The record is a 177-nucleotide sequence from Vibrio paucivorans, which matches "Lysine riboswitch aptamer" in Rfam.
Riboswitches are metabolite binding domains within certain messenger RNAs that serve as precision sensors for their corresponding targets.
A search with the family's covariance model found it, with a score of 89 bits.

RNA sequence: UUAUGCAGAAGAGGAGCACUGCCCAGGCAGGUGUUUUGUGGAGCCACAACUCCAAUACAAAACAUUGAUGGGGAGCCGUGCCGAGACAAUUCUAAGUUGCGGAUUAGAAUCGUCGGUUAAGAGGGCUGAAUCCCCUUAACUGUCGCUAGCCCUGUCUAGUGAAGAGCUUCUGAGGUU
Numbered sequence: 001u002u003a004u005g006c007a008g009a010a011g012a013g014g015a016g017c018a019c020u021g022c023c024c025a026g027g028c029a030g031g032u033g034u035u036u037u038g039u040g041g042a043g044c045c046a047c048a049a050c051u052c053c054a055a056u057a058c059a060a061a062a063c064a065u066u067g068a069u070g071g072g073g074a075g076c077c078g079u080g081c082c083g084a085g086a087c088a089a090u091u092c093u094a095a096g097u098u099g100c101g102g103a104u105u106a107g108a109a110u111c112g113u114c115g116g117u118u119a120a121g122a123g124g125g126c127u128g129a130a131u132c133c134c135c136u137u138a139a140c141u142g143u144c145g146c147u148a149g150c151c152c153u154g155u156c157u158a159g160u161g162a163a164g165a166g167c168u169u170c171u172g173a174g175g176u177u
Stems, first nucleotide, its partner, number of pairs: 006172006016081004021076002024073001030066008085114003089110007115141007123134003143162007